[Rfam]
This 92-nucleotide RNA sequence from Solilutibacter oculi belongs to the Rfam family "TPP riboswitch aptamer (THI element)". Its family is annotated with thiamine pyrophosphate binding in the Gene Ontology. A search with the family's covariance model found it, with a score of 65 bits.

RNA sequence: CGCCUGAAGCGGGGGUACCGGCGACGGUUGAGAUAGACCCUUCGAACCUGAUGCGGGUGAUGCCGCCGUAGGGAAGCUUCGCAGCACGCCAC
Numbered sequence: 001c002g003c004c005u006g007a008a009g010c011g012g013g014g015g016u017a018c019c020g021g022c023g024a025c026g027g028u029u030g031a032g033a034u035a036g037a038c039c040c041u042u043c044g045a046a047c048c049u050g051a052u053g054c055g056g057g058u059g060a061u062g063c064c065g066c067c068g069u070a071g072g073g074a075a076g077c078u079u080c081g082c083a084g085c086a087c088g089c090c091a092c
Base pairs, nucleotide, nucleotide: 006080007079008078009077010076011041012040013039014038016035017028018027019026020025047072048071049070050069053066054065055064056063